[Rfam]
RNA sequence: CCCGCAUAAGAGCCGAGUCCCGCCUGGUCUGUCUGGGUGGGAGCGGGGGAACCGAUGGAGCGUUGGUCACGCUCCCGGGGCGAAUCGCCGUCAGUGACGGCGUAGCGCAGGUCUACGCGCGAGCCCGACAGCUAACCCCGUAGGCGCGAUGAGACCAAGG
Number, nucleotide and partner (000 for none) at each position: 001c000002c000003c000004g000005c000006a000007u000008a000009a000010g000011a000012g145013c144014c143015g000016a000017g000018u042019c041020c040021c039022g038023c037024c036025u035026g034027g033028u000029c000030u000031g000032u000033c027034u026035g025036g024037g023038u022039g021040g020041g019042a018043g141044c140045g139046g138047g137048g136049g000050a000051a000052c000053c077054g076055a000056u000057g000058g000059a000060g000061c000062g000063u000064u000065g000066g000067u000068c000069a000070c000071g000072c000073u000074c000075c000076c054077g053078g126079g125080g124081c000082g000083a000084a000085u000086c102087g101088c100089c099090g000091u000092c000093a000094g000095u000096g000097a000098c000099g089100g088101c087102g086103u000104a000105g120106c119107g118108c117109a000110g000111g000112u000113c000114u000115a000116c000117g108118c107119g106120c105121g000122a000123g000124c080125c079126c078127g000128a000129c000130a000131g000132c000133u000134a000135a000136c048137c047138c046139c045140g044141u043142a000143g014144g013145c012146g000147c000148g000149a000150u000151g000152a000153g000154a000155c000156c000157a000158a000159g000160g000
About this RNA: The record is a 160-nucleotide RNA sequence from Solirubrobacter pauli, which matches "c-di-AMP riboswitch aptamer (ydaO/yuaA leader)" in Rfam. The source organism's lineage runs through Bacteria, Actinomycetota, Solirubrobacterales, Solirubrobacteraceae and Solirubrobacter. A search with the family's covariance model found it, with a score of 71 bits.